The record is a 120-nucleotide RNA sequence from Pelotomaculum schinkii, which matches "Molybdenum/Tungsten riboswitch aptamer (Moco RNA motif)" in Rfam. The match comes from Rfam's covariance-model search (69 bits). Taxonomically the source falls in Pelotomaculum (Bacteria, Bacillati, Bacillota, Desulfotomaculaceae).
RNA sequence: UUUAAAAUUGCUCUCCUAGCCACCUAACCUACAGCUGUAAAGCCAUGGUUAUUGGCCGUUAGGGCGCUCUGAGAAAUUGGCGCGCCUUCCGUUGCGAAAAGGAGAACAUAGCUUUAUUUU
Numbered sequence: 001u002u003u004a005a006a007a008u009u010g011c012u013c014u015c016c017u018a019g020c021c022a023c024c025u026a027a028c029c030u031a032c033a034g035c036u037g038u039a040a041a042g043c044c045a046u047g048g049u050u051a052u053u054g055g056c057c058g059u060u061a062g063g064g065c066g067c068u069c070u071g072a073g074a075a076a077u078u079g080g081c082g083c084g085c086c087u088u089c090c091g092u093u094g095c096g097a098a099a100a101g102g103a104g105a106a107c108a109u110a111g112c113u114u115u116a117u118u119u120u
Stems, first nucleotide, its partner, number of pairs: 004113001012105005019056004025051005034043003062087006069080004088097002